[Rfam]
RNA: c-di-AMP riboswitch aptamer (ydaO/yuaA leader)
Organism: Nocardioides gansuensis
Nucleotides: 169
Stems, first nucleotide, its partner, number of pairs: 001023002025151006035090001091136003099112004115130004
Number, partner (000 for none) and nucleotide at each position: 001023c002022c003000u004000u005000c006000g007000a008000a009000g010000a011000u012000g013000a014000u015000u016000u017000g018000g019000g020000c021000a022002g023001g024000a025151g026150u027149g028148g029147g030146g031000g032000a033000a034000c035090c036000a037000c038000a039000g040000g041000u042000u043000c044000c045000a046000c047000c048000g049000c050000c051000g052000g053000g054000g055000u056000c057000g058000c059000u060000c061000a062000g063000g064000a065000c066000g067000g068000c069000a070000c071000u072000g073000u074000u075000c076000c077000g078000a079000c080000g081000a082000c083000c084000c085000g086000g087000c088000u089000c090035g091136g092135g093134g094000u095000g096000a097000a098000g099112c100111c101110a102109c103000c104000g105000c106000a107000c108000g109102g110101u111100g112099g113000c114000g115130g116129a117128g118127c119000a120000c121000u122000u123000u124000c125000c126000a127118g128117c129116u130115c131000u132000a133000a134093c135092c136091c137000g138000a139000c140000a141000g142000c143000u144000c145000a146030c147029c148028u149027c150026a151025c152000a153000g154000g155000c156000g157000u158000g159000g160000g161000a162000a163000a164000g165000g166000a167000a168000c169000a